[Rfam]
RNA sequence: CAAGUUGGCCAGACAGUCGCCGCUUUGAUUUUGUCAAAGGGGAGGAAAGUCCGGGCUUCGCAGGGUAAAGUGCCAGGUAACGCCUGGGGGGCGUGAGCCUACGGAAAGUGCAGCAGAAAAUACACCGCCUAAGCAGUUUACUGCCGGUAAGGUUGAAAUGGUGCGGUAAGAGCGCACCGCGCACCUGGUAACAGUGUGUGGCAUGGUAAACCCCACUUGAAGCAAGACCAAAUAGGAACUCAUUGGUGUGACCCGCACUGAGUUCGGGUAGGUUGCUCGAGCUGUGCAGUGAUGUACAGCCUAGAUGAAUGACUGUCCACGACAGAACCCGGCUUAUCGGCCAACUUGCUCA
Numbered sequence: 001c002a003a004g005u006u007g008g009c010c011a012g013a014c015a016g017u018c019g020c021c022g023c024u025u026u027g028a029u030u031u032u033g034u035c036a037a038a039g040g041g042g043a044g045g046a047a048a049g050u051c052c053g054g055g056c057u058u059c060g061c062a063g064g065g066u067a068a069a070g071u072g073c074c075a076g077g078u079a080a081c082g083c084c085u086g087g088g089g090g091g092c093g094u095g096a097g098c099c100u101a102c103g104g105a106a107a108g109u110g111c112a113g114c115a116g117a118a119a120a121u122a123c124a125c126c127g128c129c130u131a132a133g134c135a136g137u138u139u140a141c142u143g144c145c146g147g148u149a150a151g152g153u154u155g156a157a158a159u160g161g162u163g164c165g166g167u168a169a170g171a172g173c174g175c176a177c178c179g180c181g182c183a184c185c186u187g188g189u190a191a192c193a194g195u196g197u198g199u200g201g202c203a204u205g206g207u208a209a210a211c212c213c214c215a216c217u218u219g220a221a222g223c224a225a226g227a228c229c230a231a232a233u234a235g236g237a238a239c240u241c242a243u244u245g246g247u248g249u250g251a252c253c254c255g256c257a258c259u260g261a262g263u264u265c266g267g268g269u270a271g272g273u274u275g276c277u278c279g280a281g282c283u284g285u286g287c288a289g290u291g292a293u294g295u296a297c298a299g300c301c302u303a304g305a306u307g308a309a310u311g312a313c314u315g316u317c318c319a320c321g322a323c324a325g326a327a328c329c330c331g332g333c334u335u336a337u338c339g340g341c342c343a344a345c346u347u348g349c350u351c352a
Stems, first nucleotide, its partner, number of pairs: 001348010011337001012317007020042002023039006047335003051332005056222004063254004068218005073087005088102001089100004103213002108211002110207002125152002127148003133144004160178006179202001180200005185194003226274004236265006245259005281300008